[Rfam]
RNA sequence: CGAGGAAAACAGACAGUCGCGCGGAAGGGGCGAAAGGCCCUUCCGUGAGGAAAGUCCGGGCUCCACAGGGCAAGGAUAACGGGUAACGCCCGCCGAAGGCGACUUCAGGAAAAGUGCAACAGAGAUAUACCGCCGCCAAGGCUGCGCCAUGUUGGUAAGAAGCCGGUGUUGAUGAACGCUCCCCCAGCGGGAACCGCAGGGGUGUUGUGUGAAGAGGGACGAAGGGUCCCUCUUCGCGAUUACAAUCAUCCGCCGCAGCGACCGAUUCCGUCAGGAAUCGGCUUACCGCCAGGGCGUAGCCCUGGCGGUAAGGGUGGAAAGGCGAGGUAAGAGCUCACCCGAUGGUGCGUCAAAGCACCCAUCGCUGUAAACUCUAUCCGGAGCAACACCGGUAUGGGAGCAGGGACUUCGGGUCCCAAGGCUGGCCCGGCCGCUCCCGGGGUGGCUUGAGCGUACCGGCAACGGUACGUCGAGAUAGAUGACUGUCAAAUACAGAACCCGGCUUAUAGUUUUGCUCGCGUA
Numbered sequence: 001c002g003a004g005g006a007a008a009a010c011a012g013a014c015a016g017u018c019g020c021g022c023g024g025a026a027g028g029g030g031c032g033a034a035a036g037g038c039c040c041u042u043c044c045g046u047g048a049g050g051a052a053a054g055u056c057c058g059g060g061c062u063c064c065a066c067a068g069g070g071c072a073a074g075g076a077u078a079a080c081g082g083g084u085a086a087c088g089c090c091c092g093c094c095g096a097a098g099g100c101g102a103c104u105u106c107a108g109g110a111a112a113a114g115u116g117c118a119a120c121a122g123a124g125a126u127a128u129a130c131c132g133c134c135g136c137c138a139a140g141g142c143u144g145c146g147c148c149a150u151g152u153u154g155g156u157a158a159g160a161a162g163c164c165g166g167u168g169u170u171g172a173u174g175a176a177c178g179c180u181c182c183c184c185c186a187g188c189g190g191g192a193a194c195c196g197c198a199g200g201g202g203u204g205u206u207g208u209g210u211g212a213a214g215a216g217g218g219a220c221g222a223a224g225g226g227u228c229c230c231u232c233u234u235c236g237c238g239a240u241u242a243c244a245a246u247c248a249u250c251c252g253c254c255g256c257a258g259c260g261a262c263c264g265a266u267u268c269c270g271u272c273a274g275g276a277a278u279c280g281g282c283u284u285a286c287c288g289c290c291a292g293g294g295c296g297u298a299g300c301c302c303u304g305g306c307g308g309u310a311a312g313g314g315u316g317g318a319a320a321g322g323c324g325a326g327g328u329a330a331g332a333g334c335u336c337a338c339c340c341g342a343u344g345g346u347g348c349g350u351c352a353a354a355g356c357a358c359c360c361a362u363c364g365c366u367g368u369a370a371a372c373u374c375u376a377u378c379c380g381g382a383g384c385a386a387c388a389c390c391g392g393u394a395u396g397g398g399a400g401c402a403g404g405g406a407c408u409u410c411g412g413g414u415c416c417c418a419a420g421g422c423u424g425g426c427c428c429g430g431c432c433g434c435u436c437c438c439g440g441g442g443u444g445g446c447u448u449g450a451g452c453g454u455a456c457c458g459g460c461a462a463c464g465g466u467a468c469g470u471c472g473a474g475a476u477a478g479a480u481g482a483c484u485g486u487c488a489a490a491u492a493c494a495g496a497a498c499c500c501g502g503c504u505u506a507u508a509g510u511u512u513u514g515c516u517c518g519c520g521u522a
Base pairs, nucleotide, nucleotide: 001518002517003516004515006513007512008511009510010509011507012487013486014485015484016483017482018481020047021046022045023044024043025042026041027040028039052505053504054503056502057501058500059499060498061383062382063381064380069428070427074379075378076377077376078375080092081091082090083089094108095106096105097104098103109374110373114372115371116368117367118366130313131312132309133308134307135306136305137304138303140301141300142299143298144297145296146295147294148293321339322338324336325335326334341363344359345358346357347356348355387444388443389442390441396438397437398436399435400434401433420432421431422430423429451470452469453468454467455466456465457464458463
Dot-bracket structure: ((((.(((((((((((((.(((((((((..........)))))))))....[[[.[[[[[((((....[[...(((((.((((.....)))).(((((....)))).)((...(((((...........(((((((((.(((((((((................................................................................................................................................))))))))).)))))))..)).......((.(((.......))).)).(..(((((......)))))...)..)))..)))))))))))))...((((.....((((((..................((((...]]))))))))))..))))......((((((((....))))))))..........)))))))..........]]]]]]]].).))))).))))....
Source information:
The record is a 522-nucleotide sequence from Dysosmobacter segnis, which matches "Bacterial RNase P class A" in Rfam. A search with the family's covariance model found it, with a score of 245 bits. About the family: Ribonuclease P (RNase P) is a ubiquitous endoribonuclease, found in archaea, bacteria and eukarya as well as chloroplasts and mitochondria. Gene Ontology terms of the family: ribonuclease P activity, dimeric ribonuclease P complex and tRNA processing.